[Rfam]
RNA: TPP riboswitch aptamer (THI element)
Organism: Rhodoferax antarcticus
RNA sequence: UCUGGCUUGUCGGGGCGCCCAAGACGAAAGUCGGGGCUGAGACCACUUCUGUGGAACCCGCUGAACCUGAUCGGGGUCAUGCCCGCGUAGGGAACAACGCAAUUGGCACC
Numbered sequence: 001u002c003u004g005g006c007u008u009g010u011c012g013g014g015g016c017g018c019c020c021a022a023g024a025c026g027a028a029a030g031u032c033g034g035g036g037c038u039g040a041g042a043c044c045a046c047u048u049c050u051g052u053g054g055a056a057c058c059c060g061c062u063g064a065a066c067c068u069g070a071u072c073g074g075g076g077u078c079a080u081g082c083c084c085g086c087g088u089a090g091g092g093a094a095c096a097a098c099g100c101a102a103u104u105g106g107c108a109c110c
Stems, first nucleotide, its partner, number of pairs: 007097004011060004016054001017037004044053003066091004072085004